[Rfam]
RNA sequence: GUGACAGAAGAGAGUGAGCACACAUGGUCAUUUUCCUACAUACUUAUCAUGUUUGAAGCUAUGCGUGCUUACUCUCUCUCUGUCAC
Numbered sequence: 001g002u003g004a005c006a007g008a009a010g011a012g013a014g015u016g017a018g019c020a021c022a023c024a025u026g027g028u029c030a031u032u033u034u035c036c037u038a039c040a041u042a043c044u045u046a047u048c049a050u051g052u053u054u055g056a057a058g059c060u061a062u063g064c065g066u067g068c069u070u071a072c073u074c075u076c077u078c079u080c081u082g083u084c085a086c
Stems, first nucleotide, its partner, number of pairs: 001086008010076012023063003